[Rfam]
Nucleotides: 109
Base pairs, nucleotide, nucleotide: 023088024087025086026085027084034079035078036077037076038075043070044069045068050064051063053061
Number, partner (000 for none) and nucleotide at each position: 001000a002000c003000u004000c005000a006000a007000c008000a009000c010000u011000u012000u013000a014000c015000a016000a017000u018000u019000a020000a021000a022000a023088a024087g025086g026085g027084u028000g029000a030000g031000u032000u033000a034079c035078a036077a037076u038075u039000g040000c041000a042000a043070a044069a045068g046000c047000a048000a049000g050064c051063c052000u053061c054000c055000u056000u057000u058000g059000u060000a061053g062000u063051g064050g065000a066000u067000u068045c069044u070043u071000g072000a073000c074000c075038a076037g077036u078035u079034g080000u081000g082000u083000a084027g085026c086025c087024c088023u089000a090000a091000a092000c093000c094000u095000g096000u097000u098000u099000u100000u101000a102000c103000g104000g105000a106000g107000u108000u109000u
This 109-nucleotide RNA from Psychroflexus maritimus belongs to the Rfam family "6S-Flavo RNA". By type it is a small RNA. The base pairs follow the family's consensus structure, which is taken from published work. A search with the family's covariance model found it, with a score of 99 bits. Lineage of the source: Bacteria > Bacteroidota > Flavobacteriales > Flavobacteriaceae > Psychroflexus.